[Rfam]
Description: Hepatitis C alternative reading frame stem-loop: a 136-nucleotide sequence from Orthohepacivirus hominis. The literature on the family includes a 2016 paper in Mol Cell by Pirakitikulr et al., "The Coding Region of the HCV Genome Contains a Network of Regulatory RNA Structures". It is annotated as a cis-regulatory element.

RNA sequence: CCCCGUCGCCCACAGGACGUUAAGUUCCCGGGCGGCGGGCAGAUCGUUGGUGGAGUAUAUGUGCUGCCGCGCAGGGGCCCACGAUUGGGUGUGCGCGCGGUACGUAAGACUUCCGAGCGGUCGCAACCUCGCGGAC
Numbered sequence: 001c002c003c004c005g006u007c008g009c010c011c012a013c014a015g016g017a018c019g020u021u022a023a024g025u026u027c028c029c030g031g032g033c034g035g036c037g038g039g040c041a042g043a044u045c046g047u048u049g050g051u052g053g054a055g056u057a058u059a060u061g062u063g064c065u066g067c068c069g070c071g072c073a074g075g076g077g078c079c080c081a082c083g084a085u086u087g088g089g090u091g092u093g094c095g096c097g098c099g100g101u102a103c104g105u106a107a108g109a110c111u112u113c114c115g116a117g118c119g120g121u122c123g124c125a126a127c128c129u130c131g132c133g134g135a136c
Base pairs, nucleotide, nucleotide: 003038004037005036006035007034008033009032010031011030015027016026017025018024042122043121044120045119046118047117048115049114050113052112053111055110056109058107062102063101068097069096070095071094072093073092077090078089079088080087
Dot-bracket structure: ..(((((((((...((((.....))))..)))))))))...(((((((((.((.((.(...((....((((((...((((......)))).))))))...))....).))))))).))))))..............
Lineage of the source: Viruses > Kitrinoviricota > Flasuviricetes > Hepaciviridae > Orthohepacivirus. It is one of the family's seed sequences.